[Rfam]
The record is a 70-nucleotide RNA from Agrobacterium fabrum, which matches "S-element" in Rfam. Rfam links the family to the GO terms translation regulator activity and mRNA transcription.
RNA sequence: AGUCAAGAGUCUUGGCAUCGAAUUUUUCGGUGAGCGAUUUUCUUUUGCCUUGUGAAAGGUGAAAGACAUG
Numbered sequence: 001a002g003u004c005a006a007g008a009g010u011c012u013u014g015g016c017a018u019c020g021a022a023u024u025u026u027u028c029g030g031u032g033a034g035c036g037a038u039u040u041u042c043u044u045u046u047g048c049c050u051u052g053u054g055a056a057a058g059g060u061g062a063a064a065g066a067c068a069u070g
Stems, first nucleotide, its partner, number of pairs: 009067005016061004024057004029053001030051001032050001034048004

The family's RNA type in Rfam is cis-regulatory element.
The source organism's lineage runs through Bacteria, Pseudomonadati, Alphaproteobacteria, Rhizobiaceae and Agrobacterium fabrum.
From the family's description: This family represents a group of S-elements from p42d and related plasmids. The S-element has multiple functions and is believed to act as a negative regulator of repC transcription, be required for efficient replication and act as a translational enhancer of repC.